RNA sequence: AAGUUCUGGUAUGGAUUUUAAGGGGAACCCCACGCCAAAAUAAAAAAAAUGGCGUGGGGUCCCCCAAAAAUCCAUACCAGACCCUUA
Numbered sequence: 001a002a003g004u005u006c007u008g009g010u011a012u013g014g015a016u017u018u019u020a021a022g023g024g025g026a027a028c029c030c031c032a033c034g035c036c037a038a039a040a041u042a043a044a045a046a047a048a049a050u051g052g053c054g055u056g057g058g059g060u061c062c063c064c065c066a067a068a069a070a071u072c073c074a075u076a077c078c079a080g081a082c083c084c085u086u087a
Base pairs, nucleotide, nucleotide: 001086002085003084005081006080007079008078009077013073014072015071016070017069018068019067022065023064024063025062027060030057031056032055033054034053035052
This 87-nucleotide RNA from Aquarana catesbeiana belongs to the Rfam family "mir-541 microRNA precursor family". Rfam links the family to the GO terms negative regulation of gene expression, type B pancreatic cell development and miRNA-mediated post-transcriptional gene silencing. The match comes from Rfam's covariance-model search (46 bits). A reference for the family is Sewer et al. (2005), "Identification of clustered microRNAs using an ab initio prediction method", BMC Bioinformatics.